[Rfam]
RNA: t44 RNA
RNA sequence: UUAACUUAAAUAUUAACACACACACAUAUCGACACAUACACUUGGGUGCAUGAUUACUGAAAAGUAACGUGUUGGUGCUAUGGGAUAUGUGGAGGCCUAAC
Dot-bracket structure: ......................((((((((....((((.(((.....(((((...............))))).)))..)))).))))))))..........